[Rfam]
RNA sequence: GCGACAGAUCGCGGGGGCCCGGCGAACCGGGCUGAGAUAGCGGCUGAGACGGCCGCUGACCGCAUGAACCUGACCGGGUAAUGCCGGCGUAGGGAGAGUCGAGUCCACAUGA
Numbered sequence: 001g002c003g004a005c006a007g008a009u010c011g012c013g014g015g016g017g018c019c020c021g022g023c024g025a026a027c028c029g030g031g032c033u034g035a036g037a038u039a040g041c042g043g044c045u046g047a048g049a050c051g052g053c054c055g056c057u058g059a060c061c062g063c064a065u066g067a068a069c070c071u072g073a074c075c076g077g078g079u080a081a082u083g084c085c086g087g088c089g090u091a092g093g094g095a096g097a098g099u100c101g102a103g104u105c106c107a108c109a110u111g112a
Stems, first nucleotide, its partner, number of pairs: 007099001009097002011063004017032005039057008069093004074087004
About this RNA
This 112-nucleotide RNA from Actinomadura hallensis belongs to the Rfam family "TPP riboswitch aptamer (THI element)". Lineage of the source: Bacteria > Actinomycetota > Actinomycetes > Thermomonosporaceae > Actinomadura. Gene Ontology term of the family: thiamine pyrophosphate binding. A search with the family's covariance model found it, with a score of 61 bits.